A member of the RNA family "TPP riboswitch aptamer (THI element)" from Microlunatus soli, 98 nucleotides long. Lineage of the source: Bacteria > Bacillati > Actinomycetota > Propionibacteriaceae > Microlunatus.
[Rfam]
RNA sequence: CAGAGAUGGCCGGGGUGCCCGAACGGAUCGGGCUGAGAUCACACCCGCCGAACCUGAUCCGGAUCAUGCCGGCGAAAGGGAGCCAGAGCGAUGUCUGC
Numbered sequence: 001c002a003g004a005g006a007u008g009g010c011c012g013g014g015g016u017g018c019c020c021g022a023a024c025g026g027a028u029c030g031g032g033c034u035g036a037g038a039u040c041a042c043a044c045c046c047g048c049c050g051a052a053c054c055u056g057a058u059c060c061g062g063a064u065c066a067u068g069c070c071g072g073c074g075a076a077a078g079g080g081a082g083c084c085a086g087a088g089c090g091a092u093g094u095c096u097g098c
Stems, first nucleotide, its partner, number of pairs: 007085004011047004016041001017033005053079003059072004
Vitamin B(1) in its active form thiamin pyrophosphate (TPP) is an essential coenzyme that is synthesised by coupling of pyrimidine and thiazole moieties in bacteria. The previously detected thiamin-regulatory element, thi box was extended, resulting in a new, highly conserved RNA secondary structure, the THI element, which is widely distributed in eubacteria and also occurs in some archaea. Analysis of operon structures identified a large number of new candidate thiamin-regulated genes, mostly transporters, in various prokaryotic organisms. The THI element is a riboswitch that directly binds to TPP to regulate gene expression through a variety of mechanisms in archaea, bacteria and eukaryotes. through a variety of mechanisms in archaea, bacteria and eukaryotes. Tandem TPP riboswitches have been reported where both TPP riboswitches respond independently to TPP. The structure of TPP riboswitch has been reported for Escherichia coli and Arabidopsis thaliana.